[Rfam]
Rfam assigns this 92-nucleotide RNA from Medicago truncatula to the family "Small nucleolar RNA snoR26". A search with the family's covariance model found it, with a score of 93 bits. By type it is a C/D-box small nucleolar RNA.
RNA sequence: UUAGCAUCAGUGAUGAGAUAAUCCAAUUUGUUAUCCUUGCACUUUGAUUGUUAGUGAAGAAAAUCAUGGGGAAUUAUUACUCUGAGAUGCUC
Numbered sequence: 001u002u003a004g005c006a007u008c009a010g011u012g013a014u015g016a017g018a019u020a021a022u023c024c025a026a027u028u029u030g031u032u033a034u035c036c037u038u039g040c041a042c043u044u045u046g047a048u049u050g051u052u053a054g055u056g057a058a059g060a061a062a063a064u065c066a067u068g069g070g071g072a073a074u075u076a077u078u079a080c081u082c083u084g085a086g087a088u089g090c091u092c
Base pairs, nucleotide, nucleotide: 003091004090005089006088007087008086